Rfam assigns this 72-nucleotide RNA from Tupaia belangeri to the family "Small nucleolar RNA SNORD27".
Lineage of the source: Eukaryota > Craniata > Sarcopterygii > Amniota > Tupaia belangeri.

[Rfam]
RNA sequence: ACUCUAUGAUGAAUAUAAAAGGACAAGCAUAUGACUGAACUUUGAAGUGAUGUCAGCUCACUGCUGAGAAGU
Numbered sequence: 001a002c003u004c005u006a007u008g009a010u011g012a013a014u015a016u017a018a019a020a021g022g023a024c025a026a027g028c029a030u031a032u033g034a035c036u037g038a039a040c041u042u043u044g045a046a047g048u049g050a051u052g053u054c055a056g057c058u059c060a061c062u063g064c065u066g067a068g069a070a071g072u
Stems, first nucleotide, its partner, number of pairs: 001072002003069002

It is annotated as a C/D-box small nucleolar RNA. A search with the family's covariance model found it, with a score of 75 bits. On this family, see Tycowski et al., Nature 1996: "A mammalian gene with introns instead of exons generating stable RNA products". Pairs were carried over by alignment from the consensus structure.